[Rfam]
Rfam assigns this 397-nucleotide RNA from Treponema porcinum to the family "Bacterial RNase P class A".

RNA sequence: CAGACGGGAUAUAACCGCGCGGCAUUUUAUGAUGAUAUGAAACUGCCGUGAGGUAAAGUCCGGGCUCCUUCGGAAAAAAUGCCGGAUAAUGACCGGGCGUUUUCAGGCAGAUACAUAAUUUCUUGUAUAUCCCCGAAAACGACAGACAGUGCAACAGAAAAUAAACCGCCUGAUUAUUCAGGUAAGGGUGAAAUGGCAGUGUAAGAGACUACCGUGCAGCUGGUAACAGGUGCAGCAGUGUAAACCUCAUUUGGAGCAAGAUUAAGCAGAAGCUUGAGUAUUCCGACUUGUACGCUUCGGGUAAAUUGCUAAAGUUGUCUGGUAACAGGCAAUUCGGAUAGAUGGUUAUGUCGUUGUAAAACGAUGACAGAACCCGGCUUAUCGUCCCGUCUGUUUU
Numbered sequence: 001c002a003g004a005c006g007g008g009a010u011a012u013a014a015c016c017g018c019g020c021g022g023c024a025u026u027u028u029a030u031g032a033u034g035a036u037a038u039g040a041a042a043c044u045g046c047c048g049u050g051a052g053g054u055a056a057a058g059u060c061c062g063g064g065c066u067c068c069u070u071c072g073g074a075a076a077a078a079a080u081g082c083c084g085g086a087u088a089a090u091g092a093c094c095g096g097g098c099g100u101u102u103u104c105a106g107g108c109a110g111a112u113a114c115a116u117a118a119u120u121u122c123u124u125g126u127a128u129a130u131c132c133c134c135g136a137a138a139a140c141g142a143c144a145g146a147c148a149g150u151g152c153a154a155c156a157g158a159a160a161a162u163a164a165a166c167c168g169c170c171u172g173a174u175u176a177u178u179c180a181g182g183u184a185a186g187g188g189u190g191a192a193a194u195g196g197c198a199g200u201g202u203a204a205g206a207g208a209c210u211a212c213c214g215u216g217c218a219g220c221u222g223g224u225a226a227c228a229g230g231u232g233c234a235g236c237a238g239u240g241u242a243a244a245c246c247u248c249a250u251u252u253g254g255a256g257c258a259a260g261a262u263u264a265a266g267c268a269g270a271a272g273c274u275u276g277a278g279u280a281u282u283c284c285g286a287c288u289u290g291u292a293c294g295c296u297u298c299g300g301g302u303a304a305a306u307u308g309c310u311a312a313a314g315u316u317g318u319c320u321g322g323u324a325a326c327a328g329g330c331a332a333u334u335c336g337g338a339u340a341g342a343u344g345g346u347u348a349u350g351u352c353g354u355u356g357u358a359a360a361a362c363g364a365u366g367a368c369a370g371a372a373c374c375c376g377g378c379u380u381a382u383c384g385u386c387c388c389g390u391c392u393g394u395u396u397u
Base pairs, nucleotide, nucleotide: 001393002392003391004390005389006388007387008386009385010384011382012348013347014346015345016344018050019049020048021047022046023045024044026042027041028040056380057379058378060377061376062375063374064373065256066255067254068253072289073288077252078251079250080249081248082096083095084094085093097143098141099140100139101138102137103136104135144247145246149245150244151241152240153239166187167186168183169182170181171180172179173178195213196212198210199209200208214236215234216233217232218231220229221228222227260307261306262305263304269298270297271296272295273294280291284290314333315332316331317330318329319328320327321326
It is annotated as a ribozyme.
About the family: Ribonuclease P (RNase P) is a ubiquitous endoribonuclease, found in archaea, bacteria and eukarya as well as chloroplasts and mitochondria.